[Rfam]
RNA sequence: GCGUUGGUUUAGCUCAGUGGUUACUUCUGUGACCUUCACAAAAUCAACCUCUCAUGGUUGCGUUGCGGCCAGAGAUCGAACUACGGGCACUGUCCAACGUUUUA
Dot-bracket structure: .((((((....((((.((((....(((((........................................)))))......)))))))).....)))))).....

This 104-nucleotide sequence belongs to the Rfam family "Vault RNA". By type it is a non-coding RNA gene. The family's consensus secondary structure is taken from published work. It is one of the family's seed sequences. From the family's description: This family of RNAs are found as part of the enigmatic vault ribonucleoprotein complex. The complex consists of a major vault protein (MVP), two minor vault proteins (VPARP and TEP1), and several small untranslated RNA molecules. It has been suggested that the vault complex is involved in drug resistance. The literature on the family includes a 2009 paper in Mol Biol Evol by Stadler et al., "Evolution of Vault RNAs".